A member of the RNA family "mir-156 microRNA precursor family" from Colocasia esculenta, 91 nucleotides long. A search with the family's covariance model found it, with a score of 79 bits. The organism belongs to Colocasia, within Eukaryota. The literature on the family includes a 2002 paper in Genes Dev by Reinhart et al., "MicroRNAs in plants". Rfam's curators write: This family represents the plant microRNA (miRNA) precursor mir-156.

RNA sequence: GUGACAGAAGAGAGUGAGCACAGAUGGUAUUUUCUUGCAUGAGAGGGUGUCUGUGCUCGAAGCUAUUUGUGCUCACUUCUCUAUCUGUCAC
Numbered sequence: 001g002u003g004a005c006a007g008a009a010g011a012g013a014g015u016g017a018g019c020a021c022a023g024a025u026g027g028u029a030u031u032u033u034c035u036u037g038c039a040u041g042a043g044a045g046g047g048u049g050u051c052u053g054u055g056c057u058c059g060a061a062g063c064u065a066u067u068u069g070u071g072c073u074c075a076c077u078u079c080u081c082u083a084u085c086u087g088u089c090a091c
Base pairs, nucleotide, nucleotide: 001091002090003089004088005087006086007085008084010081011080012079013077014076015075016074017073018072019071020070021069023067024066025065